[Rfam]
RNA: T-box leader
RNA sequence: UAAAAUUCUAGGAAGAGGAAAGUAACUUUUUCUUUCUUUUUAAGCGAGCAGGGUAUGGUGGGAGCCUGUAAAAGAGGAAUAAGUAAAAUAGAGCCUUAGAGAAGUUUAUCUGAACUAAUAGUAGGAUAAACCGCUAAAAAGCGUUAAAUUUUUAAGAGGACUUAUGUCAAUUAGAGUGGUACCGCGGAUAAAACCGUCUCUUUA
Dot-bracket structure: ......((......((((......((((.(......(((........(((((............))))))))......).)))).........))))...))..(((((((............))))))).(((......)))...............(((....)))....((((.......((((......))))))))...